[Rfam]
RNA sequence: CCUCCCGAAACAUGUCGCAGCAUGACCUGGCCGGAGGCAGUCGGCGGAGUAGAGCACUGAUUGGGGAUCCCGGGCGGGAAACCGCUCGCUCUCCUGUCAAACUCCCAACACGCCGUCGCCUUAGAUGGCCGGAAGUCCGGGCUGGUGGGUAAGCUACUAGUCCGUGAGGGAGACAACCCAGACCGUGGUUAAGGUCCCAAAAUGUCGGCUAAGUGUUAACACUGAAGGGCGUCCUAGACCUAAGACAACUGGGAGGUUAGCUUAGAAGCAGCUACCCUUUAAAGAGUGCGUAACAGCUCACCAGUCGAGGCCUAGGGCCCCGAAAAUGGACGGGGCUAAGCCGACUACCGAUACCACGGAGCGCCGCAAGGCGAUCUGGUAGGGAGGCGCCGCGCGUGGGUGGAAGCAACUCCGUGAGGAGUCGUGGACCACGCGGGGACGAAAAU
Numbered sequence: 001c002c003u004c005c006c007g008a009a010a011c012a013u014g015u016c017g018c019a020g021c022a023u024g025a026c027c028u029g030g031c032c033g034g035a036g037g038c039a040g041u042c043g044g045c046g047g048a049g050u051a052g053a054g055c056a057c058u059g060a061u062u063g064g065g066g067a068u069c070c071c072g073g074g075c076g077g078g079a080a081a082c083c084g085c086u087c088g089c090u091c092u093c094c095u096g097u098c099a100a101a102c103u104c105c106c107a108a109c110a111c112g113c114c115g116u117c118g119c120c121u122u123a124g125a126u127g128g129c130c131g132g133a134a135g136u137c138c139g140g141g142c143u144g145g146u147g148g149g150u151a152a153g154c155u156a157c158u159a160g161u162c163c164g165u166g167a168g169g170g171a172g173a174c175a176a177c178c179c180a181g182a183c184c185g186u187g188g189u190u191a192a193g194g195u196c197c198c199a200a201a202a203u204g205u206c207g208g209c210u211a212a213g214u215g216u217u218a219a220c221a222c223u224g225a226a227g228g229g230c231g232u233c234c235u236a237g238a239c240c241u242a243a244g245a246c247a248a249c250u251g252g253g254a255g256g257u258u259a260g261c262u263u264a265g266a267a268g269c270a271g272c273u274a275c276c277c278u279u280u281a282a283a284g285a286g287u288g289c290g291u292a293a294c295a296g297c298u299c300a301c302c303a304g305u306c307g308a309g310g311c312c313u314a315g316g317g318c319c320c321c322g323a324a325a326a327u328g329g330a331c332g333g334g335g336c337u338a339a340g341c342c343g344a345c346u347a348c349c350g351a352u353a354c355c356a357c358g359g360a361g362c363g364c365c366g367c368a369a370g371g372c373g374a375u376c377u378g379g380u381a382g383g384g385a386g387g388c389g390c391c392g393c394g395c396g397u398g399g400g401u402g403g404a405a406g407c408a409a410c411u412c413c414g415u416g417a418g419g420a421g422u423c424g425u426g427g428a429c430c431a432c433g434c435g436g437g438g439a440c441g442a443a444a445a446u
Base pairs, nucleotide, nucleotide: 001387002386003385004384005383006382011024012023013022014021015020026135027132028131029130030129031128032127036120037119038118040117042115043114044113045112046111052105053103054102059098060097061096063094064093065092066091067090072087073086074085075084076083077082139163140162141161142160143159144158145157146156147155168179169178170177183359184358185357186356187355188354189353193349194348195347202346204345205344206343207342208341209340227321228320229319231318232317233316234315235314236313237312239310240309248305249304250303251302252301254278255277256276259273260272261271279283284299288297289296360377361376362373363372364371365370388441390438391437393435394434395433396432397431398430399429406425407424409422410421411420412419413418
Notes: A member of the RNA family "Archaeal large subunit ribosomal RNA" from Methanothrix thermoacetophila, 446 nucleotides of a longer RNA. The match comes from Rfam's covariance-model search (2883 bits). The family's consensus secondary structure is taken from published work.